[Rfam]
RNA sequence: UUUAGUUGAUUAAGAGUAAGCCUCAGUUCCUUCGGGUACUGAGGCUUUUUUAUUGAUUAAAAAAGUUGAGGUAUAAAAAAAGCGCAUCUACAGAUGCGCUUUUUAAUAAUUUGGUAGGCACAAUUGGAUUCGAACCAACGACCCCCACCA
Dot-bracket structure: ...................(((...((.(......).))...)))...........((...........))........................................(((..(...(..((((.......)))).).)..)))...
Source information:
Shown here is a 150-nucleotide RNA sequence from Thiopseudomonas alkaliphila, a member of the family "Bacterial antisense RNA HPnc0260". It scores 60 bits against the family's covariance model. The family's consensus secondary structure was predicted with CMfinder. The organism belongs to Thiopseudomonas, within Bacteria. The literature on the family includes a 2010 paper in Nature by Sharma et al., "The primary transcriptome of the major human pathogen Helicobacter pylori".